[Rfam]
RNA: Plant signal recognition particle RNA
Organism: Quercus lobata
RNA sequence: GCCGAGCUUAGUAAUGUGAGCUUGUAACCCAAGUGGGAGCAUAAAUGUGACGGGACAUUGGUCCAAACUAGUUGGUCGGAUUUCAGUGAGGCUUUCAAUCUGGCCCGCCCAUUCCAAGCAAAGAGAUGAUGAGCCAACAGACUUGAGCUAAGGCUCUGGGUUCAGUUGGUUCCUAAAGAUGAGGGAAAUGCGUGAGGCUGGUUUCACAGAGCAGGGACAACUUCCCACUCUUUGCAGUGGAAGGAUAACGGGCCAGUGCCAAUUGUAUCCAACAUGGCCCACUGGGUUGAACUCCACUGAACCAUCAAAUUU
Numbered sequence: 001g002c003c004g005a006g007c008u009u010a011g012u013a014a015u016g017u018g019a020g021c022u023u024g025u026a027a028c029c030c031a032a033g034u035g036g037g038a039g040c041a042u043a044a045a046u047g048u049g050a051c052g053g054g055a056c057a058u059u060g061g062u063c064c065a066a067a068c069u070a071g072u073u074g075g076u077c078g079g080a081u082u083u084c085a086g087u088g089a090g091g092c093u094u095u096c097a098a099u100c101u102g103g104c105c106c107g108c109c110c111a112u113u114c115c116a117a118g119c120a121a122a123g124a125g126a127u128g129a130u131g132a133g134c135c136a137a138c139a140g141a142c143u144u145g146a147g148c149u150a151a152g153g154c155u156c157u158g159g160g161u162u163c164a165g166u167u168g169g170u171u172c173c174u175a176a177a178g179a180u181g182a183g184g185g186a187a188a189u190g191c192g193u194g195a196g197g198c199u200g201g202u203u204u205c206a207c208a209g210a211g212c213a214g215g216g217a218c219a220a221c222u223u224c225c226c227a228c229u230c231u232u233u234g235c236a237g238u239g240g241a242a243g244g245a246u247a248a249c250g251g252g253c254c255a256g257u258g259c260c261a262a263u264u265g266u267a268u269c270c271a272a273c274a275u276g277g278c279c280c281a282c283u284g285g286g287u288u289g290a291a292c293u294c295c296a297c298u299g300a301a302c303c304a305u306c307a308a309a310u311u312u
Stems, first nucleotide, its partner, number of pairs: 001040002004023007028037003043312004048307003052303002056299002058296001060294001061292002064289003068285005074279004078270004083265001085263001087262001090260002093258001100256008109244002112242005118235008131172008140163002142159002145156004173178001181224004191216001193214001198209003
Dot-bracket structure: ((.(((((((......)))))))....(((....))).))..((((.(((.((..(((.(((.(((.(((((.((((((((.(.(.(..((.(......((((((((.((.(((((.((((((((.....((((((((.((((.((((....)))).))..)).))))))))(....)..((((......(.(....(((......)))....).)....))))...))))))))..)))))))....)))))))).))).)).).)))).....)))).))))).))).)).).).))..)).))).))))